[Rfam]
Antizyme RNA frameshifting stimulation element: a 59-nucleotide sequence from Rhinopithecus roxellana. By type it is a frameshift element. For this family Rfam cites "Identification of a new antizyme mRNA +1 frameshifting stimulatory pseudoknot in a subset of diverse invertebrates and its apparent absence in intermediate species" (Ivanov et al., J Mol Biol, 2004). From the family's description: This family represents a structural element which is found in antizyme mRNA and is known to promote frameshifting. Antizyme genes have have two partially overlapping open reading frames, the second, which encodes the functional protein requires +1 translational frameshifting. This frameshift is stimulated by a pseudoknot present 3' of the frameshift site in the antizyme mRNA. The frameshifting efficiency is dependent on the level of polyamines in the cell, when the polyamine concentration is high frameshifting is more likely to occur which leads to an increase in the quantity of functional antizyme produced. The functional antizyme acts to reduce ornithine decarboxylase (ODC) activity which leads to a drop in polyamines present in the cell. Therefore, this family can be thought of as a biosensor for intracellular free polyamines. The organism belongs to Rhinopithecus, within Eukaryota. The match comes from Rfam's covariance-model search (56 bits).

RNA sequence: UGACGCCCCUCGCGCACCCCUGAAGAUUCCGGGUGGGCGAGGAAAUCGUCAAAGGGAUC
Numbered sequence: 001u002g003a004c005g006c007c008c009c010u011c012g013c014g015c016a017c018c019c020c021u022g023a024a025g026a027u028u029c030c031g032g033g034u035g036g037g038c039g040a041g042g043a044a045a046u047c048g049u050c051a052a053a054g055g056g057a058u059c
Stems, first nucleotide, its partner, number of pairs: 008042004013037001015035004025059006